[Rfam]
Rfam assigns this 232-nucleotide RNA from Streptomyces gilvosporeus to the family "Streptomyces sRNA 4677".
Pairs were carried over by alignment from the consensus structure.

RNA sequence: GGUCGCGGUGCGGCAGGCGGUCAAAGGACAAAGGACCUGGGGAAAGAACCUUUCCCAACCCACCAAACCCCGGUUUCGUCACUCACGGGGGUGAAUCGGCUCAACUCGGCUGGCGCGUGAGGAGUUUGGGCGGGCAGGCUCGGGCCCAACAACCGCAGACAUGUGAUGGCCCCCGCCGGGACUGGCAUCCCAGUGCGAGGGCCUGACCAUCCGAGGAAGUGUGGCCUUCCUG
Numbered sequence: 001g002g003u004c005g006c007g008g009u010g011c012g013g014c015a016g017g018c019g020g021u022c023a024a025a026g027g028a029c030a031a032a033g034g035a036c037c038u039g040g041g042g043a044a045a046g047a048a049c050c051u052u053u054c055c056c057a058a059c060c061c062a063c064c065a066a067a068c069c070c071c072g073g074u075u076u077c078g079u080c081a082c083u084c085a086c087g088g089g090g091g092u093g094a095a096u097c098g099g100c101u102c103a104a105c106u107c108g109g110c111u112g113g114c115g116c117g118u119g120a121g122g123a124g125u126u127u128g129g130g131c132g133g134g135c136a137g138g139c140u141c142g143g144g145c146c147c148a149a150c151a152a153c154c155g156c157a158g159a160c161a162u163g164u165g166a167u168g169g170c171c172c173c174c175g176c177c178g179g180g181a182c183u184g185g186c187a188u189c190c191c192a193g194u195g196c197g198a199g200g201g202c203c204u205g206a207c208c209a210u211c212c213g214a215g216g217a218a219g220u221g222u223g224g225c226c227u228u229c230c231u232g
Base pairs, nucleotide, nucleotide: 007212008211009209010208016071017070079094080093081092082091083090084089109145110144111142112141113140168203169202170201171200172199174197175196176195178191179190180189181188215230216229217228218227219226
From the family's description: Located in the intergenic region between anti-sigma factor SCO4677 gene and a putative regulatory protein gene SCO4676. scr4677 expression requires the SCO4677 activity and scr4677 sRNA itself seem to affect the levels of the SCO4676-associated transcripts. The organism belongs to Streptomyces, within Bacteria.